[Rfam]
Shown here is a 60-nucleotide RNA sequence, a member of the family "Actino-pnp RNA".
The family's RNA type in Rfam is cis-regulatory element.
Rfam's curators put it in the seed alignment.
RNA sequence: AAUGGUCCUCGGUAGUGGUUUCCGGAUGAUUCAUCCGUGAACUUCGAUCGAAGAUACAUU
Numbered sequence: 001a002a003u004g005g006u007c008c009u010c011g012g013u014a015g016u017g018g019u020u021u022c023c024g025g026a027u028g029a030u031u032c033a034u035c036c037g038u039g040a041a042c043u044u045c046g047a048u049c050g051a052a053g054a055u056a057c058a059u060u
Stems, first nucleotide, its partner, number of pairs: 001060004005055003009051005017043005023037006